[Rfam]
This 84-nucleotide RNA from Callorhinchus milii belongs to the Rfam family "mir-301 microRNA precursor family". A search with the family's covariance model found it, with a score of 93 bits. Gene Ontology terms of the family: miRNA-mediated post-transcriptional gene silencing and RISC complex.
RNA sequence: UGCUGACAGACGCUCUGACUUUAUUGCACUACUGUGUUUCACAGCUAGCAGUGCAAUAGUAUUGUCAAAGCAUCUGGAGGUUGC
Numbered sequence: 001u002g003c004u005g006a007c008a009g010a011c012g013c014u015c016u017g018a019c020u021u022u023a024u025u026g027c028a029c030u031a032c033u034g035u036g037u038u039u040c041a042c043a044g045c046u047a048g049c050a051g052u053g054c055a056a057u058a059g060u061a062u063u064g065u066c067a068a069a070g071c072a073u074c075u076g077g078a079g080g081u082u083g084c
Stems, first nucleotide, its partner, number of pairs: 002081003007076004012071003016067004023057008034042001